[Rfam]
The family of this 78-nucleotide RNA sequence is "CyVA-1 RNA". The family's RNA type in Rfam is small RNA. The family's consensus secondary structure is taken from published work. Rfam's curators write: Cyanobacteria, Acidobacteria (1 example), Verrucomicrobia (1 example). Rfam's curators put it in the seed alignment.
RNA sequence: GAUGCGGCACAGGUUUUUGCCGUUUCUCCUGUCUCGGACCCGUCCGAAGCGGAACGGCGUCAAGACGGGUCACGCAUC
Numbered sequence: 001g002a003u004g005c006g007g008c009a010c011a012g013g014u015u016u017u018u019g020c021c022g023u024u025u026c027u028c029c030u031g032u033c034u035c036g037g038a039c040c041c042g043u044c045c046g047a048a049g050c051g052g053a054a055c056g057g058c059g060u061c062a063a064g065a066c067g068g069g070u071c072a073c074g075c076a077u078c
Stems, first nucleotide, its partner, number of pairs: 001078006009032004038070007